[Rfam]
RNA sequence: GCGGGCGAUCGGAUGGCCGCGCUGCCGCGCAAGCGGCGGUGAGGAAAGUCCGGGCUCCACGGAGGCACGGUGCCGGGUAACACCCGGCGGGGGAGGGCUUCGGUCCGGAACCUCAGGGAAAGCGCCACAGAGAUCAGACCGCCGGGGCUUUGGUCCCGGCAAGGGUGAAACGGCGAGGUAAGAGCUCACCGCGCCCCCGGCAACGGGGGCGGCACGGCAAGCCCCACCGGGAGCAAGAUCAGAUAGGGACGACAGGGGCCAUCGCGCUCCGGGGCCGCCUCCGGUCCGUCGUCCGGGUAGAUCGCGCGAGGCCGCGGGCGACCGCGGUCCCAGAUGAAUGGCCAUCGCCGCAUGCUUCGGCGCGCGGCACAGAACCCGGCUUACAGAUCGCCCGCACCC
Numbered sequence: 001g002c003g004g005g006c007g008a009u010c011g012g013a014u015g016g017c018c019g020c021g022c023u024g025c026c027g028c029g030c031a032a033g034c035g036g037c038g039g040u041g042a043g044g045a046a047a048g049u050c051c052g053g054g055c056u057c058c059a060c061g062g063a064g065g066c067a068c069g070g071u072g073c074c075g076g077g078u079a080a081c082a083c084c085c086g087g088c089g090g091g092g093g094a095g096g097g098c099u100u101c102g103g104u105c106c107g108g109a110a111c112c113u114c115a116g117g118g119a120a121a122g123c124g125c126c127a128c129a130g131a132g133a134u135c136a137g138a139c140c141g142c143c144g145g146g147g148c149u150u151u152g153g154u155c156c157c158g159g160c161a162a163g164g165g166u167g168a169a170a171c172g173g174c175g176a177g178g179u180a181a182g183a184g185c186u187c188a189c190c191g192c193g194c195c196c197c198c199g200g201c202a203a204c205g206g207g208g209g210c211g212g213c214a215c216g217g218c219a220a221g222c223c224c225c226a227c228c229g230g231g232a233g234c235a236a237g238a239u240c241a242g243a244u245a246g247g248g249a250c251g252a253c254a255g256g257g258g259c260c261a262u263c264g265c266g267c268u269c270c271g272g273g274g275c276c277g278c279c280u281c282c283g284g285u286c287c288g289u290c291g292u293c294c295g296g297g298u299a300g301a302u303c304g305c306g307c308g309a310g311g312c313c314g315c316g317g318g319c320g321a322c323c324g325c326g327g328u329c330c331c332a333g334a335u336g337a338a339u340g341g342c343c344a345u346c347g348c349c350g351c352a353u354g355c356u357u358c359g360g361c362g363c364g365c366g367g368c369a370c371a372g373a374a375c376c377c378g379g380c381u382u383a384c385a386g387a388u389c390g391c392c393c394g395c396a397c398c399c
Stems, first nucleotide, its partner, number of pairs: 001395010011384001012346007020041009046382003050379005055233004064280002068229005073087005088116001089114004117224002122222002124218003139164002141160008172190002175187003191213001192211008237303004247294006272287005310329008

This 399-nucleotide RNA from Thermohalobaculum xanthum belongs to the Rfam family "Bacterial RNase P class A". The organism belongs to Thermohalobaculum, within Bacteria. Rfam's curators write: Ribonuclease P (RNase P) is a ubiquitous endoribonuclease, found in archaea, bacteria and eukarya as well as chloroplasts and mitochondria. Pairs were carried over by alignment from the consensus structure, which is taken from published work.